Rfam assigns this 104-nucleotide sequence from Pantoea agglomerans to the family "TPP riboswitch aptamer (THI element)".
The source organism's lineage runs through Bacteria, Pseudomonadati, Pseudomonadota, Gammaproteobacteria and Pantoea.
[Rfam]
RNA sequence: AAUGUCUCCGAGGGGUGUCCUGUUAAUGGGCUGAGAUGGGCCUAAGCCGAACCCUUGAACCUGAUCUGGGUCAUGCCAGCGAAGGGACGGGUCGGCAGAUUUUC
Dot-bracket structure: ......((((((((.(((((.......))))......((.......)))..))))....(((...((((......))))...)))..)))).............
Pairs were carried over by alignment from the consensus structure, which is taken from published work.